RNA sequence: CGGCGGCCACCGCCCAAUCGCCGAGAGGCGAGCCGGGGAACCAGGUCAGUCAUGGGGUGCAUCCGCGUCAGCGGUAGGGAUCGCUUCCGUCCCGAACCCGUCAGCUAACCCGGUCGGCGGUUAACCGGAAGGAA
Numbered sequence: 001c002g003g004c005g006g007c008c009a010c011c012g013c014c015c016a017a018u019c020g021c022c023g024a025g026a027g028g029c030g031a032g033c034c035g036g037g038g039a040a041c042c043a044g045g046u047c048a049g050u051c052a053u054g055g056g057g058u059g060c061a062u063c064c065g066c067g068u069c070a071g072c073g074g075u076a077g078g079g080a081u082c083g084c085u086u087c088c089g090u091c092c093c094g095a096a097c098c099c100g101u102c103a104g105c106u107a108a109c110c111c112g113g114u115c116g117g118c119g120g121u122u123a124a125c126c127g128g129a130a131g132g133a134a
Stems, first nucleotide, its partner, number of pairs: 011119004018031003032114006042054002055099003063074004077093004